[Rfam]
RNA sequence: ACUCGUGUGAGGGGUGCGGAACCCACUGUUGGGGUCGAAACAAGGACAGACUCCCAAGAACGUUCCACCUC
Numbered sequence: 001a002c003u004c005g006u007g008u009g010a011g012g013g014g015u016g017c018g019g020a021a022c023c024c025a026c027u028g029u030u031g032g033g034g035u036c037g038a039a040a041c042a043a044g045g046a047c048a049g050a051c052u053c054c055c056a057a058g059a060a061c062g063u064u065c066c067a068c069c070u071c
Stems, first nucleotide, its partner, number of pairs: 015067001018066005027058001031055003034051003